This 105-nucleotide sequence from Gossypium anomalum belongs to the Rfam family "Plant small nucleolar RNA R71". The family's consensus secondary structure was predicted with PFOLD. Rfam 15.1 lists 278,378 matches to the family in 216 species. It is annotated as a C/D-box small nucleolar RNA. It scores 40 bits against the family's covariance model. For this family Rfam cites "Plant snoRNAs: functional evolution and new modes of gene expression" (Brown et al., Trends Plant Sci, 2003). Its family is annotated with nucleolus and RNA processing in the Gene Ontology.
RNA sequence: AUUCCGUAAUGGGGACACUUUCUCAAUAGUGACUUGAAUCAAUCGCAAGCUUCAUAUAAAUUUUCACCUUCAAAUUGCUUUAAGUUGGCGAUCUAUUGACGGAUU
Numbered sequence: 001a002u003u004c005c006g007u008a009a010u011g012g013g014g015a016c017a018c019u020u021u022c023u024c025a026a027u028a029g030u031g032a033c034u035u036g037a038a039u040c041a042a043u044c045g046c047a048a049g050c051u052u053c054a055u056a057u058a059a060a061u062u063u064u065c066a067c068c069u070u071c072a073a074a075u076u077g078c079u080u081u082a083a084g085u086u087g088g089c090g091a092u093c094u095a096u097u098g099a100c101g102g103a104u105u
Stems, first nucleotide, its partner, number of pairs: 001105001003103004057074001